RNA sequence: CAUGAAUCUAGCGGAAACACUUCUGCACAAAUGAGAUUGUGAAUCCAGCGUGCAGAAAUGCUUCUGCUACGUUUCCA
Numbered sequence: 001c002a003u004g005a006a007u008c009u010a011g012c013g014g015a016a017a018c019a020c021u022u023c024u025g026c027a028c029a030a031a032u033g034a035g036a037u038u039g040u041g042a043a044u045c046c047a048g049c050g051u052g053c054a055g056a057a058a059u060g061c062u063u064c065u066g067c068u069a070c071g072u073u074u075c076c077a
Stems, first nucleotide, its partner, number of pairs: 004074004009069008018060002021057008032048001
Annotation: The record is a 77-nucleotide sequence from Cnephaeus nilssonii, which matches "mir-147 microRNA precursor family" in Rfam. Taxonomically the source falls in Cnephaeus (Eukaryota, Opisthokonta, Chordata, Tetrapoda). A search with the family's covariance model found it, with a score of 62 bits. The family has 26 seed sequences and 757 matches in Rfam 15.1.